[Rfam]
Nucleotides: 281
Stems, first nucleotide, its partner, number of pairs: 004281003008277001009242007017034006039275003043272005048160005053070006076155005081099006100107001101105001108150002113148002115144003164180003184212007213227006244260007
Number, partner (000 for none) and nucleotide at each position: 001000a002000a003000g004281c005280a006279u007000u008277a009242a010241u011240c012239g013238g014237u015236a016000g017034c018033u019032g020031c021030a022029u023000a024000a025000u026000c027000u028000u029022a030021u031020g032019u033018a034017g035000a036000g037000g038000a039275a040274a041273g042000u043272c044271c045270g046269u047268g048160c049159u050158a051157g052156c053070a054069c055068c056067a057066c058065c059000u060000g061000c062000g063000a064000u065058g066057g067056u068055g069054g070053u071000a072000g073000u074000g075000u076155u077154c078153a079152u080151g081099u082098u083097a084096a085095g086094c087000c088000u089000a090000a091000u092000a093000a094086g095085c096084u097083u098082a099081a100107g101105c102000u103000u104000a105101g106000a107100c108150g109149a110000c111000a112000a113148g114147u115144g116143c117142c118000a119000c120000a121000g122000a123000g124000a125000c126000g127000a128000g129000u130000g131000u132000a133000g134000u135000g136000a137000a138000a139000c140000g141000a142117g143116g144115u145000a146000a147114a148113c149109u150108c151080c152079a153078u154077g155076a156052g157051c158050u159049a160048g161000a162000a163000a164180c165179c166178c167000a168000a169000a170000u171000u172000u173000u174000g175000g176000u177000a178166g179165g180164g181000g182000a183000a184212c185211u186210a187209g188208a189207g190206a191000u192000a193000g194000u195000a196000a197000a198000u199000g200000a201000a202000c203000a204000a205000u206190u207189c208188u209187c210186u211185g212184g213227a214226a215225u216224g217223u218222u219000u220000a221000u222218a223217a224216c225215a226214u227213u228000a229000g230000a231000u232000a233000a234000a235000u236015u237014a238013c239012c240011g241010a242009u243000g244260c245259u246258u247257u248256u249255u250254c251000u252000a253000u254250g255249a256248a257247a258246a259245a260244g261000a262000a263000c264000a265000g266000a267000a268047c269046a270045c271044g272043g273041c274040u275039u276000a277008u278000u279006a280005u281004g
The family of this 281-nucleotide RNA sequence is "Bacterial RNase P class B".
It scores 216 bits against the family's covariance model.
The base pairs follow the family's consensus structure, which is taken from published work.
From the family's description: Ribonuclease P (RNase P) is a ubiquitous endoribonuclease, found in archaea, bacteria and eukarya as well as chloroplasts and mitochondria. Its best characterised activity is the generation of mature 5'-ends of tRNAs by cleaving the 5'-leader elements of precursor-tRNAs.
A reference for the family is Brown (1999), "The Ribonuclease P Database", Nucleic Acids Res.